RNA sequence: UGGUGUGGUCGCAACUGGCGUUGGGUGGCUAACCACCAGGGAGCGGCAAUCACGAAGACCACGGAUCGUACGCCUGGGCCGAGGGU
Numbered sequence: 001u002g003g004u005g006u007g008g009u010c011g012c013a014a015c016u017g018g019c020g021u022u023g024g025g026u027g028g029c030u031a032a033c034c035a036c037c038a039g040g041g042a043g044c045g046g047c048a049a050u051c052a053c054g055a056a057g058a059c060c061a062c063g064g065a066u067c068g069u070a071c072g073c074c075u076g077g078g079c080c081g082a083g084g085g086u
Base pairs, nucleotide, nucleotide: 005050006049008047009046010045011044012043015040016039017074018073019072020071021070025036026035027034028033062081063080064079066078067077
RNA: ZMP/ZTP riboswitch aptamer (pfl RNA motif)